[Rfam]
RNA sequence: ACGCCCUGCUCGUGAUCGUCUUCUCAACUUUCACCGGGCGGGUGGAAUGACGGAGAGCCCCUGUGAGGACGUGACUCACGGGGGCUCUUC
Number, nucleotide and partner (000 for none) at each position: 001a000002c044003g043004c000005c042006c041007u040008g039009c038010u037011c036012g034013u033014g032015a031016u000017c000018g028019u027020c000021u000022u000023c000024u000025c000026a000027a019028c018029u000030u000031u015032c014033a013034c012035c000036g011037g010038g009039c008040g007041g006042g005043u003044g002045g000046a000047a000048u000049g000050a000051c000052g090053g089054a088055g087056a086057g085058c084059c083060c082061c081062u080063g079064u078065g077066a076067g075068g000069a000070c000071g000072u000073g000074a000075c067076u066077c065078a064079c063080g062081g061082g060083g059084g058085c057086u056087c055088u054089u053090c052
Background
The family of this 90-nucleotide sequence from Streptomyces candidus is "sodF sRNA". Its family is annotated with mRNA binding, regulation of mRNA stability and negative regulation of translation in the Gene Ontology. By type it is a small RNA. The source organism's lineage runs through Bacteria, Bacillati, Kitasatosporales, Streptomycetaceae and Streptomyces. The literature on the family includes a 2014 paper in Nucleic Acids Res by Kim et al., "Inverse regulation of Fe- and Ni-containing SOD genes by a Fur family regulator Nur through small RNA processed from 3'UTR of the sodF mRNA".